[Rfam]
RNA sequence: GCGGGAGUGGUGGAACGGUAGACACGUCGCGCUUAGGACGCGGUGCCUUCGGGCGUGCGGGUUCGACUCCCGCCUCCCGCA
Numbered sequence: 001g002c003g004g005g006a007g008u009g010g011u012g013g014a015a016c017g018g019u020a021g022a023c024a025c026g027u028c029g030c031g032c033u034u035a036g037g038a039c040g041c042g043g044u045g046c047c048u049u050c051g052g053g054c055g056u057g058c059g060g061g062u063u064c065g066a067c068u069c070c071c072g073c074c075u076c077c078c079g080c081a
Stems, first nucleotide, its partner, number of pairs: 001080007010025003027043005057073005
Annotation
The record is an 81-nucleotide sequence from Phytoactinopolyspora alkaliphila, which matches "tRNA" in Rfam. The family's consensus secondary structure is taken from published work. A search with the family's covariance model found it, with a score of 56 bits. It is annotated as a transfer RNA.